[Rfam]
RNA sequence: UUGCCCAUCGGGGCUGCGGAUACCUGAUCUUAUUUUU
Numbered sequence: 001u002u003g004c005c006c007a008u009c010g011g012g013g014c015u016g017c018g019g020a021u022a023c024c025u026g027a028u029c030u031u032a033u034u035u036u037u
Stems, first nucleotide, its partner, number of pairs: 003014004017026003